[Rfam]
RNA: Small nucleolar RNA U49
RNA sequence: UCCCAUUGAGGAAGCAAACCCAAAAGAGAUAAAGUGCAAUAUGACACUCUUUAACACAGCAGUUUG
Numbered sequence: 001u002c003c004c005a006u007u008g009a010g011g012a013a014g015c016a017a018a019c020c021c022a023a024a025a026g027a028g029a030u031a032a033a034g035u036g037c038a039a040u041a042u043g044a045c046a047c048u049c050u051u052u053a054a055c056a057c058a059g060c061a062g063u064u065u066g
Stems, first nucleotide, its partner, number of pairs: 014060002031050001033048004